TPP riboswitch aptamer (THI element): a 107-nucleotide RNA from Massilia sp. KIM. The organism belongs to Massilia, within Bacteria. Its family is annotated with thiamine pyrophosphate binding in the Gene Ontology.
[Rfam]
RNA sequence: CGCACACGCUAGGGGUCCUGCGUGUCGUGCAAGCGACAUGCGGGUGAGAAAUACCCUCCGAACCUGAUCUGGAUAAUGCCAGCGAAGGGAAGCAGUCGAGAACGGUG
Numbered sequence: 001c002g003c004a005c006a007c008g009c010u011a012g013g014g015g016u017c018c019u020g021c022g023u024g025u026c027g028u029g030c031a032a033g034c035g036a037c038a039u040g041c042g043g044g045u046g047a048g049a050a051a052u053a054c055c056c057u058c059c060g061a062a063c064c065u066g067a068u069c070u071g072g073a074u075a076a077u078g079c080c081a082g083c084g085a086a087g088g089g090a091a092g093c094a095g096u097c098g099a100g101a102a103c104g105g106u107g
Base pairs, nucleotide, nucleotide: 008093009092010091011057012056013055014054016051017044018043019042020041021040022039023038024037025036026035027034063088064087065086069082070081071080072079